This 102-nucleotide RNA from Paenisporosarcina antarctica belongs to the Rfam family "Purine riboswitch aptamer". Pairs were carried over by alignment from the consensus structure, which is taken from published work. Riboswitches are metabolite binding domains within certain messenger RNAs that serve as precision sensors for their corresponding targets. NCBI's taxonomy places the organism under Bacteria, Bacillati, Bacilli, Caryophanaceae, Paenisporosarcina.
[Rfam]
RNA sequence: AUUAUACAGACCGUUUGCCCUUAUAUAUGUCCGAUGAUACGGUUCGGAUGUCUCUACCAAGUCGCCGGAAAUGACUUGACUAUGAAGGCGAAUUCAAACAUG
Numbered sequence: 001a002u003u004a005u006a007c008a009g010a011c012c013g014u015u016u017g018c019c020c021u022u023a024u025a026u027a028u029g030u031c032c033g034a035u036g037a038u039a040c041g042g043u044u045c046g047g048a049u050g051u052c053u054c055u056a057c058c059a060a061g062u063c064g065c066c067g068g069a070a071a072u073g074a075c076u077u078g079a080c081u082a083u084g085a086a087g088g089c090g091a092a093u094u095c096a097a098a099c100a101u102g
Stems, first nucleotide, its partner, number of pairs: 018088002021085005029049006058078007